[Rfam]
RNA sequence: AUAAUGAUACUUGCGUCCCGUCCUAAAGCCGAGCGUGACCCGUCGCAGCAAAGGAGGGCGCCCUGCGGAGAUCCCGCAGGUGGUGAGAUUCCAAUGA
Numbered sequence: 001a002u003a004a005u006g007a008u009a010c011u012u013g014c015g016u017c018c019c020g021u022c023c024u025a026a027a028g029c030c031g032a033g034c035g036u037g038a039c040c041c042g043u044c045g046c047a048g049c050a051a052a053g054g055a056g057g058g059c060g061c062c063c064u065g066c067g068g069a070g071a072u073c074c075c076g077c078a079g080g081u082g083g084u085g086a087g088a089u090u091c092c093a094a095u096g097a
Base pairs, nucleotide, nucleotide: 012094013061014060015059016058017057018056062080063079064078066076067075068074081093082092083091
Dot-bracket structure: ...........(((((((.....................................))))))(((.(((.....))).)))(((.......))))...

The record is a 97-nucleotide sequence from Acutalibacter sp. 1XD8-33, which matches "pemK RNA" in Rfam. Lineage of the source: Bacteria > Clostridia > Eubacteriales > Acutalibacteraceae > Acutalibacter. A search with the family's covariance model found it, with a score of 62 bits. The family's RNA type in Rfam is cis-regulatory element.